[Rfam]
RNA sequence: AUUAUGGAGAGUUUGAUCCUGGCUCAGGACGAACGCUGGCGGCGUGCCUAACACAUGCAAGUCGAACGGGGAUUUUGUUUCGGCAGAAUCCUAGUGGCGAACGGGUGAGUAACGCGUAGGCAACCUGCCCCCCGGAUUGGGACAACACCCCGAAAGGGGUGCUAAUACCGGAUACGAAGAUAGCACCGCAUGGUGUUAUUUUGAAAGAUGGCCUCUAUUUAUAAGCUAUCGCCGGGGGAUGGGCCUGCGUCCGAUUAGCUGGUUGGUGGGGUAACGGCCUACCAAGGCGACGAUCGGUAGCCGGUCUGAGAGGAUGAACGGCCACAUUGGGACUGAGACACGGCCCAGACUCCUACGGGAGGCAGCAGUGGGGAAUCUUCCGCAAUGGGCGAAAGCCUGACGGAGCAACGCCGCGUGGGUGAGGAAGUUCUUCGGAACGUAAAGCCCUGUUGUACAUGACGAACGUGCUUUCUAUCAACAACGGGAAGCAAUGACGGUAGUGUACGAGGAAGCCACGGCUAACUACGUGCCAGCAGCCGCGGUAAUACGUAGGUGGCAAGCGUUGUCCGGAAUUAUUG
Numbered sequence: 001a002u003u004a005u006g007g008a009g010a011g012u013u014u015g016a017u018c019c020u021g022g023c024u025c026a027g028g029a030c031g032a033a034c035g036c037u038g039g040c041g042g043c044g045u046g047c048c049u050a051a052c053a054c055a056u057g058c059a060a061g062u063c064g065a066a067c068g069g070g071g072a073u074u075u076u077g078u079u080u081c082g083g084c085a086g087a088a089u090c091c092u093a094g095u096g097g098c099g100a101a102c103g104g105g106u107g108a109g110u111a112a113c114g115c116g117u118a119g120g121c122a123a124c125c126u127g128c129c130c131c132c133c134g135g136a137u138u139g140g141g142a143c144a145a146c147a148c149c150c151c152g153a154a155a156g157g158g159g160u161g162c163u164a165a166u167a168c169c170g171g172a173u174a175c176g177a178a179g180a181u182a183g184c185a186c187c188g189c190a191u192g193g194u195g196u197u198a199u200u201u202u203g204a205a206a207g208a209u210g211g212c213c214u215c216u217a218u219u220u221a222u223a224a225g226c227u228a229u230c231g232c233c234g235g236g237g238g239a240u241g242g243g244c245c246u247g248c249g250u251c252c253g254a255u256u257a258g259c260u261g262g263u264u265g266g267u268g269g270g271g272u273a274a275c276g277g278c279c280u281a282c283c284a285a286g287g288c289g290a291c292g293a294u295c296g297g298u299a300g301c302c303g304g305u306c307u308g309a310g311a312g313g314a315u316g317a318a319c320g321g322c323c324a325c326a327u328u329g330g331g332a333c334u335g336a337g338a339c340a341c342g343g344c345c346c347a348g349a350c351u352c353c354u355a356c357g358g359g360a361g362g363c364a365g366c367a368g369u370g371g372g373g374a375a376u377c378u379u380c381c382g383c384a385a386u387g388g389g390c391g392a393a394a395g396c397c398u399g400a401c402g403g404a405g406c407a408a409c410g411c412c413g414c415g416u417g418g419g420u421g422a423g424g425a426a427g428u429u430c431u432u433c434g435g436a437a438c439g440u441a442a443a444g445c446c447c448u449g450u451u452g453u454a455c456a457u458g459a460c461g462a463a464c465g466u467g468c469u470u471u472c473u474a475u476c477a478a479c480a481a482c483g484g485g486a487a488g489c490a491a492u493g494a495c496g497g498u499a500g501u502g503u504a505c506g507a508g509g510a511a512g513c514c515a516c517g518g519c520u521a522a523c524u525a526c527g528u529g530c531c532a533g534c535a536g537c538c539g540c541g542g543u544a545a546u547a548c549g550u551a552g553g554u555g556g557c558a559a560g561c562g563u564u565g566u567c568c569g570g571a572a573u574u575a576u577u578g
Stems, first nucleotide, its partner, number of pairs: 009025005027568004032564006039414006045407002047372001052370003056367003061098003066095002069091002072089007105325003114250008124242002129238007137171004146161006177202007185194003207230006251297003258288003263285008300322004304315004327348005350361004378404001380403003386399005417447004427438004451509001452505006461495001467489007512557005523552005533540002